mir-263 microRNA precursor family: an 83-nucleotide RNA from Haemaphysalis longicornis. The family has 52 seed sequences and 368 matches in Rfam 15.1. Pairs were carried over by alignment from the consensus structure, which was predicted with RNAalifold. For this family Rfam cites "Direct sequencing and expression analysis of a large number of miRNAs in Aedes aegypti and a multi-species survey of novel mosquito miRNAs" (Li et al., BMC Genomics, 2009).

RNA sequence: GUGCCUCCGUCAAUGGCACUGGAAGAAUUCACGGGUUCCUGAUAGCGAUGCCGUGACUUCUCCGGUGCUGUGGACGGCGGCAC
Numbered sequence: 001g002u003g004c005c006u007c008c009g010u011c012a013a014u015g016g017c018a019c020u021g022g023a024a025g026a027a028u029u030c031a032c033g034g035g036u037u038c039c040u041g042a043u044a045g046c047g048a049u050g051c052c053g054u055g056a057c058u059u060c061u062c063c064g065g066u067g068c069u070g071u072g073g074a075c076g077g078c079g080g081c082a083c
Stems, first nucleotide, its partner, number of pairs: 003081003007077004013071006020064003025059002029056006